[Rfam]
RNA: SAM riboswitch aptamer (S box leader)
Organism: Shimazuella alba
RNA sequence: CUCUUAUCGAGAGUGGUGGAGGGACUGGCCCGAUGAAACCCGGCAACCAAUUGAUCCAAUCGAUCAAUAUGGUGCCAAUUCCUGCAGGAAUGUUUUCCUGAUAGAUAAGAG
Numbered sequence: 001c002u003c004u005u006a007u008c009g010a011g012a013g014u015g016g017u018g019g020a021g022g023g024a025c026u027g028g029c030c031c032g033a034u035g036a037a038a039c040c041c042g043g044c045a046a047c048c049a050a051u052u053g054a055u056c057c058a059a060u061c062g063a064u065c066a067a068u069a070u071g072g073u074g075c076c077a078a079u080u081c082c083u084g085c086a087g088g089a090a091u092g093u094u095u096u097c098c099u100g101a102u103a104g105a106u107a108a109g110a111g
Stems, first nucleotide, its partner, number of pairs: 001111008013041001015040003021031003025084001027082002042076004047072002050068006080103001085100006